RNA sequence: GAAGCAAUGAUGAGAUGAAAACACAAAGGUGUGUUGGGCAGUGGGUAAUACCGUGAGCCUUGACAAUUUAAAACGACUUCUCCUUCCACUGAGCUUC
Numbered sequence: 001g002a003a004g005c006a007a008u009g010a011u012g013a014g015a016u017g018a019a020a021a022c023a024c025a026a027a028g029g030u031g032u033g034u035u036g037g038g039c040a041g042u043g044g045g046u047a048a049u050a051c052c053g054u055g056a057g058c059c060u061u062g063a064c065a066a067u068u069u070a071a072a073a074c075g076a077c078u079u080c081u082c083c084u085u086c087c088a089c090u091g092a093g094c095u096u097c
Stems, first nucleotide, its partner, number of pairs: 001097005
Small nucleolar RNA Z152/R70/R12/: a 97-nucleotide sequence from Thalictrum thalictroides.
Rfam 15.1 lists 604 matches to the family in 220 species.
Pairs were carried over by alignment from the consensus structure, which was predicted with PFOLD.
Taxonomically the source falls in Thalictrum (Eukaryota, Viridiplantae, Tracheophyta, Spermatophyta).
It is annotated as a C/D-box small nucleolar RNA.